Rfam assigns this 193-nucleotide sequence from Vagococcus zengguangii to the family "6S / SsrS RNA".
Rfam describes the family as follows. E. coli 6S RNA was the first non coding RNA to be sequenced, but its function was unknown until recently.
It is annotated as a non-coding RNA gene.

[Rfam]
RNA sequence: GGAAAUCUGUAAUGUGCGCGUCGCUUCACUUCUGUGUUGACCGAACAUUUUUAGUAUUAUAUCGGGAUUCAAACUGAUUAAAAAGAAAACAGGCCUUUUCACUUGGAAGUUUGACGUUUAUUCUAUGAAACCCACCUGCAUUACUAGCGGGUUCAAUACUACGAAACGACUAACGGCAUCGAACGGAUUUCUU
Numbered sequence: 001g002g003a004a005a006u007c008u009g010u011a012a013u014g015u016g017c018g019c020g021u022c023g024c025u026u027c028a029c030u031u032c033u034g035u036g037u038u039g040a041c042c043g044a045a046c047a048u049u050u051u052u053a054g055u056a057u058u059a060u061a062u063c064g065g066g067a068u069u070c071a072a073a074c075u076g077a078u079u080a081a082a083a084a085g086a087a088a089a090c091a092g093g094c095c096u097u098u099u100c101a102c103u104u105g106g107a108a109g110u111u112u113g114a115c116g117u118u119u120a121u122u123c124u125a126u127g128a129a130a131c132c133c134a135c136c137u138g139c140a141u142u143a144c145u146a147g148c149g150g151g152u153u154c155a156a157u158a159c160u161a162c163g164a165a166a167c168g169a170c171u172a173a174c175g176g177c178a179u180c181g182a183a184c185g186g187a188u189u190u191c192u193u
Base pairs, nucleotide, nucleotide: 002191003190004189005188006187007186008185009184010183012179013178014177015176017175018174034159035158036157037156038155039154040153041151042150064133065132066131068129069128070127071126073124077122079120080119081118082117089110090109094106095105